Description
c-di-AMP riboswitch aptamer (ydaO/yuaA leader): a 189-nucleotide RNA from Arthrobacter psychrolactophilus. Its family is annotated with cyclic-di-AMP binding and regulation of gene expression in the Gene Ontology. Taxonomically the source falls in Arthrobacter (Bacteria, Actinomycetota, Actinomycetes, Micrococcaceae).

[Rfam]
RNA sequence: GCUCUGCCGCCGCCCAUCUUCCUCCACCCGCAUGGCAGAGACGGGGGACCCAAUAUUUACGGGCCUUUCCGCAUGGAAGCCCUUGGGGUUAAGCCGACGCGCAUCAGCAGCUUUACGUUCCUGAUGAACCGCUGGCCGGAUUCUCUAGUCCGUUCCCGACAGCUCACCUCGCAGGCGUAGAGAGGCAAU
Numbered sequence: 001g002c003u004c005u006g007c008c009g010c011c012g013c014c015c016a017u018c019u020u021c022c023u024c025c026a027c028c029c030g031c032a033u034g035g036c037a038g039a040g041a042c043g044g045g046g047g048a049c050c051c052a053a054u055a056u057u058u059a060c061g062g063g064c065c066u067u068u069c070c071g072c073a074u075g076g077a078a079g080c081c082c083u084u085g086g087g088g089u090u091a092a093g094c095c096g097a098c099g100c101g102c103a104u105c106a107g108c109a110g111c112u113u114u115a116c117g118u119u120c121c122u123g124a125u126g127a128a129c130c131g132c133u134g135g136c137c138g139g140a141u142u143c144u145c146u147a148g149u150c151c152g153u154u155c156c157c158g159a160c161a162g163c164u165c166a167c168c169u170c171g172c173a174g175g176c177g178u179a180g181a182g183a184g185g186c187a188a189u
Stems, first nucleotide, its partner, number of pairs: 011177004018040003042171005051085002086157003094135003138151004